[Rfam]
RNA sequence: GCAAGCAUAUGAUGAAAAAUCUAUCACUUAUACUACACACCGAAUUAAAUGUAGACAAUAUCUCCGCUUAUUAUCUGAAGCUUGC
Numbered sequence: 001g002c003a004a005g006c007a008u009a010u011g012a013u014g015a016a017a018a019a020u021c022u023a024u025c026a027c028u029u030a031u032a033c034u035a036c037a038c039a040c041c042g043a044a045u046u047a048a049a050u051g052u053a054g055a056c057a058a059u060a061u062c063u064c065c066g067c068u069u070a071u072u073a074u075c076u077g078a079a080g081c082u083u084g085c
Stems, first nucleotide, its partner, number of pairs: 003083004
Small nucleolar RNA R16: an 85-nucleotide RNA from Rosa chinensis. The family has 18 seed sequences and 884 matches in Rfam 15.1. The source organism's lineage runs through Eukaryota, Tracheophyta, Mesangiospermae, fabids and Rosa. Pairs were carried over by alignment from the consensus structure, which was predicted with PFOLD. A search with the family's covariance model found it, with a score of 55 bits. A reference for the family is Marker et al. (2002), "Experimental RNomics: identification of 140 candidates for small non-messenger RNAs in the plant Arabidopsis thaliana", Curr Biol.